[Rfam]
RNA sequence: GCUGAUGAUGAAAUAAUCCAAUUGUUUGAGAUACGGUGGAUCCAAGACCUUGUUUUACAGGGAGAACCACUUGGUUGAAGCUGUAUUUCACUUGAUAUUACUGGAUUUAAAUUGAAGC
Numbered sequence: 001g002c003u004g005a006u007g008a009u010g011a012a013a014u015a016a017u018c019c020a021a022u023u024g025u026u027u028g029a030g031a032u033a034c035g036g037u038g039g040a041u042c043c044a045a046g047a048c049c050u051u052g053u054u055u056u057a058c059a060g061g062g063a064g065a066a067c068c069a070c071u072u073g074g075u076u077g078a079a080g081c082u083g084u085a086u087u088u089c090a091c092u093u094g095a096u097a098u099u100a101c102u103g104g105a106u107u108u109a110a111a112u113u114g115a116a117g118c
Stems, first nucleotide, its partner, number of pairs: 001118003048062005

The family of this 118-nucleotide RNA sequence from Cynara cardunculus is "Small nucleolar RNA Z278". The organism belongs to Cynara cardunculus subsp. cardunculus, within Eukaryota. On this family, see Chen et al., Nucleic Acids Res 2003: "The high diversity of snoRNAs in plants: identification and comparative study of 120 snoRNA genes from Oryza sativa". snoZ278 is a C/D box small nucleolar RNA. Its methylation guide targets have not been reported.